RNA sequence: UGGCCCUGCCGCGACUGGCGAGGGUGGGCAACCACCGGGGAGCGGCAGGCCUGCACCUGGCACCACCGCAGCACGGGGCGUCGUCCGCCUGGGCUUCCCGG
Numbered sequence: 001u002g003g004c005c006c007u008g009c010c011g012c013g014a015c016u017g018g019c020g021a022g023g024g025u026g027g028g029c030a031a032c033c034a035c036c037g038g039g040g041a042g043c044g045g046c047a048g049g050c051c052u053g054c055a056c057c058u059g060g061c062a063c064c065a066c067c068g069c070a071g072c073a074c075g076g077g078g079c080g081u082c083g084u085c086c087g088c089c090u091g092g093g094c095u096u097c098c099c100g101g
Stems, first nucleotide, its partner, number of pairs: 003051001005049008015039002017089004024035004078096001080094003
The family of this 101-nucleotide RNA from Actinomyces weissii is "ZMP/ZTP riboswitch aptamer (pfl RNA motif)". Pairs were carried over by alignment from the consensus structure, which is taken from published work. Rfam 15.1 lists 3,295 matches to the family in 2,545 species.